Source information
Shown here is a 158-nucleotide sequence from Desulfofarcimen acetoxidans, a member of the family "RT-14 RNA". NCBI's taxonomy places the organism under Bacteria, Bacillati, Clostridia, Peptococcaceae, Desulfofarcimen acetoxidans. Rfam's curators put it in the seed alignment.
RNA sequence: UUCGCCCCCAUAGUCAGAAGUUACUGCCUCAAGGGGUGGUAUCCAGUACCGGGGGACAAAGGGGCCUAUCUCCCUGCCGCGAUCUAUUUUGGACCGGCAAAAAACUAUAUUGCCGGGAAGACAGUUAGUAGCCAUUGGGCGAAGAGUGUUACGCCCGG
Numbered sequence: 001u002u003c004g005c006c007c008c009c010a011u012a013g014u015c016a017g018a019a020g021u022u023a024c025u026g027c028c029u030c031a032a033g034g035g036g037u038g039g040u041a042u043c044c045a046g047u048a049c050c051g052g053g054g055g056a057c058a059a060a061g062g063g064g065c066c067u068a069u070c071u072c073c074c075u076g077c078c079g080c081g082a083u084c085u086a087u088u089u090u091g092g093a094c095c096g097g098c099a100a101a102a103a104a105c106u107a108u109a110u111u112g113c114c115g116g117g118a119a120g121a122c123a124g125u126u127a128g129u130a131g132c133c134a135u136u137g138g139g140c141g142a143a144g145a146g147u148g149u150u151a152c153g154c155c156c157g158g
Base pairs, nucleotide, nucleotide: 003055006054007053008052009051013049014048020043022041023040024039025038026037027036028035029034076098077097078096079095113158114157115156116155117154120150121149122148123147125145131140132139
The family's consensus secondary structure is taken from published work. By type it is a small RNA.